[Rfam]
RNA sequence: AGGGGUUGAGGCCACAGCAGAAGUGCUUAUGUCACAGCCGUGUCAGAUUCAACAUAUCUGCAAAUUCUGCU
Numbered sequence: 001a002g003g004g005g006u007u008g009a010g011g012c013c014a015c016a017g018c019a020g021a022a023g024u025g026c027u028u029a030u031g032u033c034a035c036a037g038c039c040g041u042g043u044c045a046g047a048u049u050c051a052a053c054a055u056a057u058c059u060g061c062a063a064a065u066u067c068u069g070c071u
Stems, first nucleotide, its partner, number of pairs: 010039003016071007023035003044060005049054001
This 71-nucleotide RNA from Alligator mississippiensis belongs to the Rfam family "Mammalian CPEB3 ribozyme". Its family is annotated with RNA nuclease activity in the Gene Ontology. The mammalian CPEB3 ribozyme is a self cleaving RNA located in the second intron of the CPEB3 gene which belongs to a family of genes regulating messenger RNA polyadenylation. This ribozyme is highly conserved and found only in mammals. The match comes from Rfam's covariance-model search (48 bits). Pairs were carried over by alignment from the consensus structure, which is taken from published work. The source organism's lineage runs through Eukaryota, Craniata, Sarcopterygii, Alligatorinae and Alligator.